[Rfam]
RNA sequence: CGUAGUGACACGGGGUGCCGUAAUACAGCGGCUGAGAUUAACCCGUUGAACCUGUGUGGUUAGGACCAGCGAAGGGAUGUCAUGGAACUCAAAG
Numbered sequence: 001c002g003u004a005g006u007g008a009c010a011c012g013g014g015g016u017g018c019c020g021u022a023a024u025a026c027a028g029c030g031g032c033u034g035a036g037a038u039u040a041a042c043c044c045g046u047u048g049a050a051c052c053u054g055u056g057u058g059g060u061u062a063g064g065a066c067c068a069g070c071g072a073a074g075g076g077a078u079g080u081c082a083u084g085g086a087a088c089u090c091a092a093a094g
Base pairs, nucleotide, nucleotide: 006082007081008080009079010078011045012044013043014042017032018031019030020029021028051075052074053073057068058067059066

Record summary
Rfam assigns this 94-nucleotide sequence from Brevibacterium ravenspurgense to the family "TPP riboswitch aptamer (THI element)". A search with the family's covariance model found it, with a score of 62 bits. NCBI's taxonomy places the organism under Bacteria, Actinomycetota, Actinomycetes, Brevibacteriaceae, Brevibacterium. From the family's description: Vitamin B(1) in its active form thiamin pyrophosphate (TPP) is an essential coenzyme that is synthesised by coupling of pyrimidine and thiazole moieties in bacteria. The previously detected thiamin-regulatory element, thi box was extended, resulting in a new, highly conserved RNA secondary structure, the THI element, which is widely distributed in eubacteria and also occurs in some archaea. The family's consensus secondary structure is taken from published work.